A member of the RNA family "c-di-GMP-I riboswitch aptamer" from Peptoclostridium acidaminophilum, 89 nucleotides long. The literature on the family includes a 2007 paper in Nucleic Acids Res by Weinberg et al., "Identification of 22 candidate structured RNAs in bacteria using the CMfinder comparative genomics pipeline". Taxonomically the source falls in Peptoclostridium acidaminophilum (Bacteria, Bacillota, Peptostreptococcales, Peptoclostridium).
RNA sequence: AAGAGAUAAAGGCAAAAUCAUCGAAAGAUGAUGACGCAAAGCCACGAGUCUAAGUCUAUAUGAAAAGAUAUGAUCGUCGGGUUGCCUAU
Numbered sequence: 001a002a003g004a005g006a007u008a009a010a011g012g013c014a015a016a017a018u019c020a021u022c023g024a025a026a027g028a029u030g031a032u033g034a035c036g037c038a039a040a041g042c043c044a045c046g047a048g049u050c051u052a053a054g055u056c057u058a059u060a061u062g063a064a065a066a067g068a069u070a071u072g073a074u075c076g077u078c079g080g081g082u083u084g085c086c087u088a089u
Base pairs, nucleotide, nucleotide: 012037013036017032018031019030020029021028022027040083041082042081043080045079046078047077048074049073050072055068056067057066